[Rfam]
RNA sequence: CCAGGGGGCGCUCUAGCAGCACAUCAUGAUUUGCAGAUCUGAACUUGAAUCACUCCAAAUCAUUGUGUGCUGCCACUGUGAACCCUGG
Numbered sequence: 001c002c003a004g005g006g007g008g009c010g011c012u013c014u015a016g017c018a019g020c021a022c023a024u025c026a027u028g029a030u031u032u033g034c035a036g037a038u039c040u041g042a043a044c045u046u047g048a049a050u051c052a053c054u055c056c057a058a059a060u061c062a063u064u065g066u067g068u069g070c071u072g073c074c075a076c077u078g079u080g081a082a083c084c085c086u087g088g
Base pairs, nucleotide, nucleotide: 001088002087003086004085005084006083014075016073017072018071019070020069021068022067023066024065026063027062028061029060030059031058032057033056035054036053
Shown here is an 88-nucleotide RNA from Cynoglossus semilaevis, a member of the family "mir-15 microRNA precursor family". A reference for the family is Lagos-Quintana et al. (2001), "Identification of novel genes coding for small expressed RNAs", Science. Clan: mir-15 clan. Rfam's curators write: This family represents the related mir-15a and mir-15b sequences. In humans miR-15a and miR-16 are clustered within 0.5 kb at 13q14. This region has been shown to be deleted in more than half of B cell chronic lymphocytic leukaemias (CLL). Both miR-15a and miR-16 are deleted or down-regulated in more than two thirds of CLL cases. Rfam 15.1 lists 2,045 matches to the family in 649 species. Gene Ontology terms of the family: RISC complex and miRNA-mediated post-transcriptional gene silencing. The family's consensus secondary structure was predicted with RNAalifold. NCBI's taxonomy places the organism under Eukaryota, Metazoa, Acanthomorphata, Pleuronectiformes, Cynoglossus.